A member of the RNA family "Guanidine-I riboswitch aptamer" from Marinomonas sp. MED121, 111 nucleotides long. Pairs were carried over by alignment from the consensus structure.

RNA sequence: CAAUGGUAUAGCUAGGGUUCCGACUUUGAAAAAAGUGUCUGGUCCGAGAGCUAUCGACCUCACCUGACAUUCUCAGUGAAGGUUACACGGAGGGAUAAAAGCCCGGGAGAA
Numbered sequence: 001c002a003a004u005g006g007u008a009u010a011g012c013u014a015g016g017g018u019u020c021c022g023a024c025u026u027u028g029a030a031a032a033a034a035g036u037g038u039c040u041g042g043u044c045c046g047a048g049a050g051c052u053a054u055c056g057a058c059c060u061c062a063c064c065u066g067a068c069a070u071u072c073u074c075a076g077u078g079a080a081g082g083u084u085a086c087a088c089g090g091a092g093g094g095a096u097a098a099a100a101g102c103c104c105g106g107g108a109g110a111a
Stems, first nucleotide, its partner, number of pairs: 008054005015045002020042002022039001023036005056084005061078003086106001088109001092104003